Shown here is a 65-nucleotide sequence from Microcaecilia unicolor, a member of the family "GAIT element". The family has 8 seed sequences and 121 matches in Rfam 15.1. Rfam classes the family as a cis-regulatory element. A search with the family's covariance model found it, with a score of 38 bits. Lineage of the source: Eukaryota > Opisthokonta > Metazoa > Sarcopterygii > Microcaecilia. This family represents a cis-acting element in the 3'-UTR of the ceruloplasmin (Cp) gene called gamma interferon inhibitor of translation (GAIT). The GAIT element is involved in selective translational silencing of the Cp transcript. Ceruloplasmin (Cp) is a multifunctional, copper-containing glycoprotein produced by the liver and secreted into the plasma. The base pairs follow the family's consensus structure, which is taken from published work.
RNA sequence: GCCCCUGAAAUAAAGUAAAAUGUUUUUUUUUAAAUGCUUAUAAGCAUUAAAAAAAGGAGGGGGGC
Numbered sequence: 001g002c003c004c005c006u007g008a009a010a011u012a013a014a015g016u017a018a019a020a021u022g023u024u025u026u027u028u029u030u031u032a033a034a035u036g037c038u039u040a041u042a043a044g045c046a047u048u049a050a051a052a053a054a055a056g057g058a059g060g061g062g063g064g065c
Base pairs, nucleotide, nucleotide: 001065002064003063004062005061006060019048020047021046022045023044024043030040032038